[Rfam]
RNA sequence: UAUUUGCCAUGAUGACUCCUAUUAGGACGGUAUCUGAAGGGGGUGACUUUUGAGCGCAUCCCUUCUGAUUAUACCAAACUCAAUGUGGUUUCUGAGCAAAUC
Numbered sequence: 001u002a003u004u005u006g007c008c009a010u011g012a013u014g015a016c017u018c019c020u021a022u023u024a025g026g027a028c029g030g031u032a033u034c035u036g037a038a039g040g041g042g043g044u045g046a047c048u049u050u051u052g053a054g055c056g057c058a059u060c061c062c063u064u065c066u067g068a069u070u071a072u073a074c075c076a077a078a079c080u081c082a083a084u085g086u087g088g089u090u091u092c093u094g095a096g097c098a099a100a101u102c
Stems, first nucleotide, its partner, number of pairs: 002101006038064006
Shown here is a 102-nucleotide RNA from Setaria italica, a member of the family "Small nucleolar RNA Z118/Z121/Z120". A search with the family's covariance model found it, with a score of 68 bits. For this family Rfam cites "The high diversity of snoRNAs in plants: identification and comparative study of 120 snoRNA genes from Oryza sativa" (Chen et al., Nucleic Acids Res, 2003). Rfam links the family to the GO terms nucleolus and RNA processing. The base pairs follow the family's consensus structure, which was predicted with PFOLD. NCBI's taxonomy places the organism under Eukaryota, Viridiplantae, Streptophyta, Panicoideae, Setaria.